[Rfam]
RNA sequence: AUAGCCAUAGAAGGAGCCAUAGAAGGAGCGUUCACGUCGCGGUCCCUGUCAGGUAUCUGUUUACCUGCGAAUCCUUCU
Numbered sequence: 001a002u003a004g005c006c007a008u009a010g011a012a013g014g015a016g017c018c019a020u021a022g023a024a025g026g027a028g029c030g031u032u033c034a035c036g037u038c039g040c041g042g043u044c045c046c047u048g049u050c051a052g053g054u055a056u057c058u059g060u061u062u063a064c065c066u067g068c069g070a071a072u073c074c075u076u077c078u
Base pairs, nucleotide, nucleotide: 013046014045016043017042018041021078022077023076024075025074026073027072028040029039030038050067051066052065053064054063055062

Overview:
Mammalian CPEB3 ribozyme: a 78-nucleotide sequence from Laticauda laticaudata. Pairs were carried over by alignment from the consensus structure, which is taken from published work.